Rfam assigns this 131-nucleotide RNA from Niallia endozanthoxylica to the family "Ribosomal protein L20 leader". The family's RNA type in Rfam is cis-regulatory leader. The family's consensus secondary structure was predicted with CMfinder. Taxonomically the source falls in Niallia (Bacteria, Bacillota, Bacilli, Bacillaceae). The match comes from Rfam's covariance-model search (84 bits). Its family is annotated with regulation of gene expression in the Gene Ontology. A reference for the family is Zengel and Lindahl (1994), "Diverse mechanisms for regulating ribosomal protein synthesis in Escherichia coli", Prog Nucleic Acid Res Mol Biol. This family is a putative r-protein leader autoregulatory structure found in B. subtilis and other low-GC Gram-positive bacteria. It is located in the 5' untranslated regions of mRNAs encoding initiation factor 3 followed by ribosomal proteins L35 and L20 (infC-rpmI-rplT). A Rho-independent transcription terminator structure that is probably involved in regulation is included at the 3' end.
RNA sequence: UAGGAAAAGAAGAAGCACCCGCUUCUCACCUGAUUGACGCAUGAGGCAGUUGACAGGUUUUGCGAAGACUUUUAUUAGUGAUGAACGGUUUCGUAAAGUGUGGGUGUAUUCACCCACACUUUUUUGUUGAU
Number, nucleotide and partner (000 for none) at each position: 001u000002a000003g000004g000005a000006a000007a000008a000009g000010a000011a026012g025013a024014a023015g022016c021017a000018c000019c000020c000021g016022c015023u014024u013025c012026u011027c000028a058029c057030c056031u000032g000033a000034u000035u000036g051037a050038c049039g047040c046041a000042u000043g000044a000045g000046g040047c039048a000049g038050u037051u036052g000053a000054c000055a000056g030057g029058u028059u000060u000061u000062g000063c000064g000065a000066a000067g000068a000069c000070u000071u000072u000073u000074a000075u000076u000077a000078g000079u000080g000081a000082u000083g000084a000085a000086c000087g000088g000089u000090u000091u000092c000093g000094u000095a000096a000097a000098g000099u118100g117101u116102g115103g114104g113105u112106g111107u000108a000109u000110u000111c106112a105113c104114c103115c102116a101117c100118a099119c000120u000121u000122u000123u000124u000125u000126g000127u000128u000129g000130a000131u000